Record summary
The family of this 80-nucleotide RNA from Cnephaeus nilssonii is "mir-574 microRNA precursor family". The family has 6 seed sequences and 4,084 matches in Rfam 15.1. On this family, see Nielsen et al., Anim Genet 2010: "MicroRNA identity and abundance in porcine skeletal muscles determined by deep sequencing". Its Rfam clan is "mir-574 microRNA precursor clan".
RNA sequence: AGCCCUGAGAGAGAGGCAGGGUCUGAUCCACAGCCUCCAUGGCAGCUGUUGAUCAGCCCUUGCCUCUCUUUUUCUCUCCG
Numbered sequence: 001a002g003c004c005c006u007g008a009g010a011g012a013g014a015g016g017c018a019g020g021g022u023c024u025g026a027u028c029c030a031c032a033g034c035c036u037c038c039a040u041g042g043c044a045g046c047u048g049u050u051g052a053u054c055a056g057c058c059c060u061u062g063c064c065u066c067u068c069u070u071u072u073u074c075u076c077u078c079c080g
Stems, first nucleotide, its partner, number of pairs: 007072013021058001023056006031048004